Notes:
Shown here is a 166-nucleotide part of an RNA from Fusarium mundagurra, a member of the family "Ascomycota telomerase RNA". A search with the family's covariance model found it, with a score of 355 bits.

RNA sequence: CAAACCUGCAAGGAUCAGAAGGUCUGAACAGGUCCCUCAGAUCCGCCGAAAGGUUGAACUGAGAUGAAAGGGUGGUUUUUAUGGAUGUCUUUUGUCCACCCGUCAAUGCCCCCCAUACCUCUCGCUGGCGAGAAAUUUGGGGAGGAAUCAAAAACUAGUCCUAGUU
Dot-bracket structure: ......((..((.(((....)))))...))....((((((.((...(....)...)).)))))..).................(((((.(((((..............((((((.....(((((....))))).....)))).))...)))))))..)))......
Numbered sequence: 001c002a003a004a005c006c007u008g009c010a011a012g013g014a015u016c017a018g019a020a021g022g023u024c025u026g027a028a029c030a031g032g033u034c035c036c037u038c039a040g041a042u043c044c045g046c047c048g049a050a051a052g053g054u055u056g057a058a059c060u061g062a063g064a065u066g067a068a069a070g071g072g073u074g075g076u077u078u079u080u081a082u083g084g085a086u087g088u089c090u091u092u093u094g095u096c097c098a099c100c101c102g103u104c105a106a107u108g109c110c111c112c113c114c115a116u117a118c119c120u121c122u123c124g125c126u127g128g129c130g131a132g133a134a135a136u137u138u139g140g141g142g143a144g145g146a147a148u149c150a151a152a153a154a155c156u157a158g159u160c161c162u163a164g165u166u
Stems, first nucleotide, its partner, number of pairs: 007030002011025002014023003035066001036063005042057002047052001084160003087155002090153005109145002111142004120133005
Overview
The family's RNA type in Rfam is non-coding RNA gene. Its family is annotated with telomerase activity, telomerase catalytic core complex and telomere maintenance via telomerase in the Gene Ontology.